The family of this 123-nucleotide RNA from Paenibacillus aquistagni is "Glycine riboswitch aptamer". Taxonomically the source falls in Paenibacillus (Bacteria, Bacillati, Bacillota, Caryophanales). Rfam's curators write: This family represents the bacterial glycine riboswitch.
RNA sequence: CUCUGGAGAGCAUCCUGCCAUUCUCGGACAGGAUCACCCAAGGGGUAACUCCUAUGCAGCAGCUUAUGAUUGGCAGCAAUCAUGACUAAGCUAGGAGGACACUCUCAGGUACCAAGGACAGAG
Numbered sequence: 001c002u003c004u005g006g007a008g009a010g011c012a013u014c015c016u017g018c019c020a021u022u023c024u025c026g027g028a029c030a031g032g033a034u035c036a037c038c039c040a041a042g043g044g045g046u047a048a049c050u051c052c053u054a055u056g057c058a059g060c061a062g063c064u065u066a067u068g069a070u071u072g073g074c075a076g077c078a079a080u081c082a083u084g085a086c087u088a089a090g091c092u093a094g095g096a097g098g099a100c101a102c103u104c105u106c107a108g109g110u111a112c113c114a115a116g117g118a119c120a121g122a123g
Stems, first nucleotide, its partner, number of pairs: 001123005012034006036110003040105001043104003049097006